[Rfam]
RNA sequence: GUUAUUCGAGGUGGUAAAAUUCGUUGCAACCACGCACCCAAGUGGUCAAAAGAGAUGCAGGAGAGGCGACGCCUGCCGGAUAAC
Numbered sequence: 001g002u003u004a005u006u007c008g009a010g011g012u013g014g015u016a017a018a019a020u021u022c023g024u025u026g027c028a029a030c031c032a033c034g035c036a037c038c039c040a041a042g043u044g045g046u047c048a049a050a051a052g053a054g055a056u057g058c059a060g061g062a063g064a065g066g067c068g069a070c071g072c073c074u075g076c077c078g079g080a081u082a083a084c
Base pairs, nucleotide, nucleotide: 001084002083003082004081005080006079007078008077011033012032013031014030015029023070024069025068026067027066035052036046037045038044057076058075059074060073061072
Dot-bracket structure: ((((((((..(((((.......[[[[[.))))).((((.....))).....)....(((((....]]]]].)))))))))))))